[Rfam]
Background: The record is a 112-nucleotide RNA from Arabidopsis thaliana, which matches "MIR2933 microRNA precursor family" in Rfam.

RNA sequence: GAAAUUCGUUGGCGAUUUUGAGUGAAAUCGGAGAGGGAAUUCGUCGGUGAUUUUGAGUGAAAUCGGAGAGGAAAUUCGCCGGCGAUUUUGAGUGAAAUCGGAGAGGAAAAUC
Numbered sequence: 001g002a003a004a005u006u007c008g009u010u011g012g013c014g015a016u017u018u019u020g021a022g023u024g025a026a027a028u029c030g031g032a033g034a035g036g037g038a039a040u041u042c043g044u045c046g047g048u049g050a051u052u053u054u055g056a057g058u059g060a061a062a063u064c065g066g067a068g069a070g071g072a073a074a075u076u077c078g079c080c081g082g083c084g085a086u087u088u089u090g091a092g093u094g095a096a097a098u099c100g101g102a103g104a105g106g107a108a109a110a111u112c
Stems, first nucleotide, its partner, number of pairs: 005108003009104002013100008024089007033080001035079001037077005042071001044069002048065007
Source information: Gene Ontology terms of the family: miRNA-mediated post-transcriptional gene silencing and RISC complex. NCBI's taxonomy places the organism under Eukaryota, Tracheophyta, Spermatophyta, Pentapetalae, Arabidopsis. It is one of the family's seed sequences.